[Rfam]
RNA sequence: CACCCGGGACGUCCCGGGUGCGUUUCACUUUUUAGGGGACGUCCCCU
Numbered sequence: 001c002a003c004c005c006g007g008g009a010c011g012u013c014c015c016g017g018g019u020g021c022g023u024u025u026c027a028c029u030u031u032u033u034a035g036g037g038g039a040c041g042u043c044c045c046c047u
Stems, first nucleotide, its partner, number of pairs: 001020008034047005
Dot-bracket structure: ((((((((....)))))))).............(((((....)))))
RNA: Guanidine-II riboswitch aptamer (mini-ykkC)
Organism: Taxus chinensis